A member of the RNA family "pan motif" from Brevibacillus fluminis, 106 nucleotides long.
RNA sequence: GAGGCUGUAUCACUGAGGUGAACGGCACUCCGCUUCGGUUUUCUUUUUAUUUAUUUCACAUACUAGUAAAGUUCUGCUCAGAGCCUAUCAGGACCGAGACAGAGAG
Numbered sequence: 001g002a003g004g005c006u007g008u009a010u011c012a013c014u015g016a017g018g019u020g021a022a023c024g025g026c027a028c029u030c031c032g033c034u035u036c037g038g039u040u041u042u043c044u045u046u047u048u049a050u051u052u053a054u055u056u057c058a059c060a061u062a063c064u065a066g067u068a069a070a071g072u073u074c075u076g077c078u079c080a081g082a083g084c085c086u087a088u089c090a091g092g093a094c095c096g097a098g099a100c101a102g103a104g105a106g
Stems, first nucleotide, its partner, number of pairs: 001030003004026005010021002074102003077098003081094001084092002
Description
The base pairs follow the family's consensus structure, which is taken from published work.